L31-Actinobacteria ribosomal protein leader: a 44-nucleotide RNA sequence from Nonomuraea sp. SBT364.
[Rfam]
RNA sequence: GCGGUACCGGUUCCCGCCAUGAGUUCACUGGCGACCCGGCGACC
Dot-bracket structure: ..(((.((((....(((((((....)).)))))..))))..)))